[Rfam]
RNA sequence: AAGUCCUUUAAAAGAUAGUCCAGAGAGGCUAAGAAGGAGCAGCAGUUUACCGGAACUUACCAGAGAGUAACAGACCGGUAACAUAUGAACAGUACCGAUGGUUAUGACCAGCAGGCCUGUUUGUAUCCUAUUUGACCUGGUUGAAGCGGAAGCACUCUUAUUCUUUUAAGGAUAAGAGUGCUUUUUU
Numbered sequence: 001a002a003g004u005c006c007u008u009u010a011a012a013a014g015a016u017a018g019u020c021c022a023g024a025g026a027g028g029c030u031a032a033g034a035a036g037g038a039g040c041a042g043c044a045g046u047u048u049a050c051c052g053g054a055a056c057u058u059a060c061c062a063g064a065g066a067g068u069a070a071c072a073g074a075c076c077g078g079u080a081a082c083a084u085a086u087g088a089a090c091a092g093u094a095c096c097g098a099u100g101g102u103u104a105u106g107a108c109c110a111g112c113a114g115g116c117c118u119g120u121u122u123g124u125a126u127c128c129u130a131u132u133u134g135a136c137c138u139g140g141u142u143g144a145a146g147c148g149g150a151a152g153c154a155c156u157c158u159u160a161u162u163c164u165u166u167u168a169a170g171g172a173u174a175a176g177a178g179u180g181c182u183u184u185u186u187u
Stems, first nucleotide, its partner, number of pairs: 004038006016031005089120004095114001097112001099110004151182014
Shown here is a 187-nucleotide sequence from Alkalibacterium sp. AK22, a member of the family "PyrR binding site". Its family is annotated with pyrimidine nucleobase biosynthetic process and pyrimidine nucleobase transport in the Gene Ontology. The family's RNA type in Rfam is cis-regulatory element. The base pairs follow the family's consensus structure, which is taken from published work.